The record is a 75-nucleotide RNA from Triticum urartu, which matches "Plastid-ycf2 5UTR RNA" in Rfam. The family's consensus secondary structure was predicted with LocARNA. Plastid ycf2 is a non-coding RNA (ncRNA) recognised in plastids. It was found in the prime untranslated region (5UTR) of ycf2 genes, it presents a tRNA-like motif which suggests it can be involved in mRNA maturation, particularly involved in defining the precise 5' end of the transcript. Taxonomically the source falls in Triticum (Eukaryota, Euphyllophyta, Liliopsida, Petrosaviidae).
[Rfam]
RNA sequence: GUGCAUCCAGCUGGAAUUGAACCCGCAAGUUUAUCAAUUAUGAGUUGGGCGCUUUAAUCAUUCAGCCAUGAAUGU
Numbered sequence: 001g002u003g004c005a006u007c008c009a010g011c012u013g014g015a016a017u018u019g020a021a022c023c024c025g026c027a028a029g030u031u032u033a034u035c036a037a038u039u040a041u042g043a044g045u046u047g048g049g050c051g052c053u054u055u056a057a058u059c060a061u062u063c064a065g066c067c068a069u070g071a072a073u074g075u
Stems, first nucleotide, its partner, number of pairs: 003075004008070001010026002013023002040069003044066006051059001